[Rfam]
RNA: U4 spliceosomal RNA
RNA sequence: AUCCUAGUGCACGGGUUUUACACGUAUCAGUGAGGAGAGAUCCGAGAUCGUGUUUUUGCUAGUUGAAAACUAUCAACGUGACCGCUUCAGAUGGUCUUCGGAUCGUCUGGGAAUUUUUGAAACUUUACAUCGCUCUGAA
Number, nucleotide and partner (000 for none) at each position: 001a000002u000003c000004c000005u000006a000007g000008u000009g000010c000011a000012c000013g000014g000015g000016u000017u000018u000019u000020a053021c052022a051023c050024g049025u000026a048027u047028c046029a000030g000031u000032g000033a000034g043035g042036a041037g000038a000039g000040a000041u036042c035043c034044g000045a000046g028047a027048u026049c024050g023051u022052g021053u020054u000055u000056u000057u000058g000059c000060u000061a000062g000063u000064u000065g000066a000067a000068a000069a000070c000071u000072a000073u000074c000075a000076a000077c000078g000079u000080g000081a000082c000083c000084g000085c000086u111087u110088c109089a108090g107091a106092u105093g104094g103095u102096c101097u000098u000099c000100g000101g096102a095103u094104c093105g092106u091107c090108u089109g088110g087111g086112a000113a000114u000115u000116u000117u000118u000119g000120a000121a000122a000123c000124u000125u000126u000127a000128c000129a000130u000131c000132g000133c000134u000135c000136u000137g000138a000139a000